[Rfam]
RNA: mir-548 microRNA precursor family
Organism: Rhinopithecus roxellana
RNA sequence: UGUUAGGUUGGUGCAAAAGUUAUCACAGUUUUUGCUAUUGAAAGUAAUGGCAAAAACUGUGAUAACUUUUGCACUAACCUAAUA
Numbered sequence: 001u002g003u004u005a006g007g008u009u010g011g012u013g014c015a016a017a018a019g020u021u022a023u024c025a026c027a028g029u030u031u032u033u034g035c036u037a038u039u040g041a042a043a044g045u046a047a048u049g050g051c052a053a054a055a056a057c058u059g060u061g062a063u064a065a066c067u068u069u070u071g072c073a074c075u076a077a078c079c080u081a082a083u084a
Base pairs, nucleotide, nucleotide: 001084002083003082004081005080006079007078008077009076010075011074012073013072014071015070016069017068018067019066020065021064022063023062024061025060026059027058028057029056030055031054032053033052034051035050036049037048038047039046040045